[Rfam]
RNA sequence: AAUCCGCACUCACCCACCCGUACACGGCAGGAGCGGGGGACCCACAGGUACAACGCCUGGUCCGGUCUUCCGGGACAGGCUCGGGGUAUAGCCGCCACAGCGCGGCCGGGCAUCUCCAGCUCGCACCCGACAGCUCACCUCGCAGGCGCCGGAGAGGAAUU
Numbered sequence: 001a002a003u004c005c006g007c008a009c010u011c012a013c014c015c016a017c018c019c020g021u022a023c024a025c026g027g028c029a030g031g032a033g034c035g036g037g038g039g040a041c042c043c044a045c046a047g048g049u050a051c052a053a054c055g056c057c058u059g060g061u062c063c064g065g066u067c068u069u070c071c072g073g074g075a076c077a078g079g080c081u082c083g084g085g086g087u088a089u090a091g092c093c094g095c096c097a098c099a100g101c102g103c104g105g106c107c108g109g110g111c112a113u114c115u116c117c118a119g120c121u122c123g124c125a126c127c128c129g130a131c132a133g134c135u136c137a138c139c140u141c142g143c144a145g146g147c148g149c150c151g152g153a154g155a156g157g158a159a160u161u
Stems, first nucleotide, its partner, number of pairs: 003032003033143006043083001084128003092105004108122004
Dot-bracket structure: ..(((........................)))((((((....(.......................................)(((.....((((......))))..((((.......))))...))).........))))))..................
RNA: c-di-AMP riboswitch aptamer (ydaO/yuaA leader)